[Rfam]
RNA sequence: CCCGAAAGAUGGUGAACUAUGCCUGAGCAGGGCGAAGCCAGAGGAAACUCUGGUGGAGGCUCGUAGAUGUGCUGACGUGCAAAUCGCUUUUCGGACUUGGGUAUAGGGGCGAAAGACUAAUCGAACCAUUAUUGAAGUGCUACUCGGUGGUUGAGAGCGCGGCUCGAGAGGGCCGCGCUAGUCGGGACCCGGUCAUUGUUGACGCCGAUCGGGAUCAGCCGGCAAGACCGUCAAAUUGCGGGGACGCGUUGCCAGGCCGUCGGUAGGGCCUUGUCGGGGAAACCCGUCAAGGCACCCGGGCUAAUCACCCGGGGUAUCCUAAGAACCCGACGGAUAGACGCUAUCCGCAGCCAAGUCCUAAGUGCCUGAUCCAGGCAUACGGAUGCAGUUCACAGACUAAAUGUCGGUCGGGAGCCGCUCGGCUCCUUAAGGUAUAGUCGGACCGCACCGAGAGGUGUCCGCACGGAGGAAGCCCGGCGUCGGGCGGAGAGCCGUGUGGGGCGAGCGGGAGAAAUAGUCCCGGCAGCAAUGCCGGUGACGGCCUCUUUCUUAACCGAGAGGGGCCUCCCUUGCCGGAGUGAUCGCUAGUAGCUGGUU
Numbered sequence: 001c002c003c004g005a006a007a008g009a010u011g012g013u014g015a016a017c018u019a020u021g022c023c024u025g026a027g028c029a030g031g032g033c034g035a036a037g038c039c040a041g042a043g044g045a046a047a048c049u050c051u052g053g054u055g056g057a058g059g060c061u062c063g064u065a066g067a068u069g070u071g072c073u074g075a076c077g078u079g080c081a082a083a084u085c086g087c088u089u090u091u092c093g094g095a096c097u098u099g100g101g102u103a104u105a106g107g108g109g110c111g112a113a114a115g116a117c118u119a120a121u122c123g124a125a126c127c128a129u130u131a132u133u134g135a136a137g138u139g140c141u142a143c144u145c146g147g148u149g150g151u152u153g154a155g156a157g158c159g160c161g162g163c164u165c166g167a168g169a170g171g172g173c174c175g176c177g178c179u180a181g182u183c184g185g186g187a188c189c190c191g192g193u194c195a196u197u198g199u200u201g202a203c204g205c206c207g208a209u210c211g212g213g214a215u216c217a218g219c220c221g222g223c224a225a226g227a228c229c230g231u232c233a234a235a236u237u238g239c240g241g242g243g244a245c246g247c248g249u250u251g252c253c254a255g256g257c258c259g260u261c262g263g264u265a266g267g268g269c270c271u272u273g274u275c276g277g278g279g280a281a282a283c284c285c286g287u288c289a290a291g292g293c294a295c296c297c298g299g300g301c302u303a304a305u306c307a308c309c310c311g312g313g314g315u316a317u318c319c320u321a322a323g324a325a326c327c328c329g330a331c332g333g334a335u336a337g338a339c340g341c342u343a344u345c346c347g348c349a350g351c352c353a354a355g356u357c358c359u360a361a362g363u364g365c366c367u368g369a370u371c372c373a374g375g376c377a378u379a380c381g382g383a384u385g386c387a388g389u390u391c392a393c394a395g396a397c398u399a400a401a402u403g404u405c406g407g408u409c410g411g412g413a414g415c416c417g418c419u420c421g422g423c424u425c426c427u428u429a430a431g432g433u434a435u436a437g438u439c440g441g442a443c444c445g446c447a448c449c450g451a452g453a454g455g456u457g458u459c460c461g462c463a464c465g466g467a468g469g470a471a472g473c474c475c476g477g478c479g480u481c482g483g484g485c486g487g488a489g490a491g492c493c494g495u496g497u498g499g500g501g502c503g504a505g506c507g508g509g510a511g512a513a514a515u516a517g518u519c520c521c522g523g524c525a526g527c528a529a530u531g532c533c534g535g536u537g538a539c540g541g542c543c544u545c546u547u548u549c550u551u552a553a554c555c556g557a558g559a560g561g562g563g564c565c566u567c568c569c570u571u572g573c574c575g576g577a578g579u580g581a582u583c584g585c586u587a588g589u590a591g592c593u594g595g596u597u
Stems, first nucleotide, its partner, number of pairs: 001595002004592001008585001010584004017106011028094001030062004037054007066091002069088001071087002074085002108574005
The family of this 597-nucleotide part of an RNA from Coccomyxa subellipsoidea is "Eukaryotic large subunit ribosomal RNA". Rfam 15.1 lists 107,465 matches to the family in 2,616 species. The match comes from Rfam's covariance-model search (3163 bits). The organism belongs to Coccomyxa subellipsoidea, within Eukaryota.